[Rfam]
RNA sequence: GCCCUGGACAGGAUAUCAUCUUAUACUGUAAGUUUAAUAAAGAGACACUACAGUAUAGAUGAUGUACUAUCCAGGGUUU
Numbered sequence: 001g002c003c004c005u006g007g008a009c010a011g012g013a014u015a016u017c018a019u020c021u022u023a024u025a026c027u028g029u030a031a032g033u034u035u036a037a038u039a040a041a042g043a044g045a046c047a048c049u050a051c052a053g054u055a056u057a058g059a060u061g062a063u064g065u066a067c068u069a070u071c072c073a074g075g076g077u078u079u
Base pairs, nucleotide, nucleotide: 007071008070010068011067013065014064015063016062017061018060019059020058022057023056024055025054026053027052028051029050030049032046033045034044

The record is a 79-nucleotide RNA sequence from Oryzias latipes, which matches "mir-144 microRNA precursor family" in Rfam. Lineage of the source: Eukaryota > Opisthokonta > Clupeocephala > Euteleosteomorpha > Oryzias. Rfam 15.1 lists 594 matches to the family in 569 species. Gene Ontology terms of the family: miRNA-mediated post-transcriptional gene silencing and RISC complex.